[Rfam]
RNA sequence: CCGUGCUAAGCGGGGAGGUAGCGGUGCCCUAUACUCGCAAUCCGCUAUAGCGAGGCCGAAUUCCCGUCUGAGGUACGAUGACUUUAUGGUCUGCCUCAAGGGAUUGGUGUUGACGCUUAGGUCCUGCGCAACAGAAACCCAUGAACCCUGUCAGGUCCGGAAGGAAGCAGCAGUAAGUGGUCAUUUCUGUGUGCCGCGGGGAAGCCUAAGCCGAGCCAUGAACUUGAGUAACGCAUAGGGUCACCGUAUCGAUGAUGGGUGCACGG
Dot-bracket structure: ((((((...((((((.(.(...).).))))...(((((...........)))))))......((((((...(((((..((((((((((...((..(((((...(.(((......((((((((((((((((.(((((..((((.....((((....(((....)))....))))...))))....)))))))...))))))...))))))))...)))..)..))))).))...))))))))))..)))))...)))))).))))))
Numbered sequence: 001c002c003g004u005g006c007u008a009a010g011c012g013g014g015g016a017g018g019u020a021g022c023g024g025u026g027c028c029c030u031a032u033a034c035u036c037g038c039a040a041u042c043c044g045c046u047a048u049a050g051c052g053a054g055g056c057c058g059a060a061u062u063c064c065c066g067u068c069u070g071a072g073g074u075a076c077g078a079u080g081a082c083u084u085u086a087u088g089g090u091c092u093g094c095c096u097c098a099a100g101g102g103a104u105u106g107g108u109g110u111u112g113a114c115g116c117u118u119a120g121g122u123c124c125u126g127c128g129c130a131a132c133a134g135a136a137a138c139c140c141a142u143g144a145a146c147c148c149u150g151u152c153a154g155g156u157c158c159g160g161a162a163g164g165a166a167g168c169a170g171c172a173g174u175a176a177g178u179g180g181u182c183a184u185u186u187c188u189g190u191g192u193g194c195c196g197c198g199g200g201g202a203a204g205c206c207u208a209a210g211c212c213g214a215g216c217c218a219u220g221a222a223c224u225u226g227a228g229u230a231a232c233g234c235a236u237a238g239g240g241u242c243a244c245c246g247u248a249u250c251g252a253u254g255a256u257g258g259g260u261g262c263a264c265g266g
Stems, first nucleotide, its partner, number of pairs: 001266006010056002012030004017025001019023001034054005063259006072250005079243010092230002096227005104220001106217003115211008123200006129191002132189005139180004148173004156165003
Shown here is a 266-nucleotide RNA from Virgibacillus pantothenticus, a member of the family "Bacterial large signal recognition particle RNA".
NCBI's taxonomy places the organism under Bacteria, Bacillati, Bacillota, Bacilli, Virgibacillus.
Rfam links the family to the GO terms signal recognition particle, plasma membrane targeting and SRP-dependent cotranslational protein targeting to membrane, signal sequence recognition.
It is annotated as a non-coding RNA gene.
Rfam's curators write: The signal recognition particle (SRP) is a universally conserved ribonucleoprotein involved in the co-translational targeting of proteins to membranes.